RNA: Potassium channel RNA editing signal
RNA sequence: UUACAGGUAUGGUGAUAUGGUUCCCCACACGCCCACGGGGAAGAUAGUGGGCGGCGUAUGUUCACUCUCAGGCGUAUUGGUGAUCGCGCUGCCCGUACCUGUCAUCGUGUCGAAC
Numbered sequence: 001u002u003a004c005a006g007g008u009a010u011g012g013u014g015a016u017a018u019g020g021u022u023c024c025c026c027a028c029a030c031g032c033c034c035a036c037g038g039g040g041a042a043g044a045u046a047g048u049g050g051g052c053g054g055c056g057u058a059u060g061u062u063c064a065c066u067c068u069c070a071g072g073c074g075u076a077u078u079g080g081u082g083a084u085c086g087c088g089c090u091g092c093c094c095g096u097a098c099c100u101g102u103c104a105u106c107g108u109g110u111c112g113a114a115c
Stems, first nucleotide, its partner, number of pairs: 002114001004112001006111001008109005014103004019098001022095001038078002041075001051063001